[Rfam]
RNA: SAM (S-adenosyl methionine) riboswitch aptamer
Organism: Rhizocola hellebori
RNA sequence: GGUCACGAGUGCCAGCAGAUAAGCCCCGGCUUGCUGGCCGGCAACCCUCCGCCGCGGUGGGGUGCCCCGGGUGAUGACCGGGCUCCAGGCGCGACGGUCGCGCCGGGCGCAAGCGCGGAGG
Numbered sequence: 001g002g003u004c005a006c007g008a009g010u011g012c013c014a015g016c017a018g019a020u021a022a023g024c025c026c027c028g029g030c031u032u033g034c035u036g037g038c039c040g041g042c043a044a045c046c047c048u049c050c051g052c053c054g055c056g057g058u059g060g061g062g063u064g065c066c067c068c069g070g071g072u073g074a075u076g077a078c079c080g081g082g083c084u085c086c087a088g089g090c091g092c093g094a095c096g097g098u099c100g101c102g103c104c105g106g107g108c109g110c111a112a113g114c115g116c117g118g119a120g121g
Stems, first nucleotide, its partner, number of pairs: 001079004009039001011038006022031002040066003045062003049057002082110002085107002088104006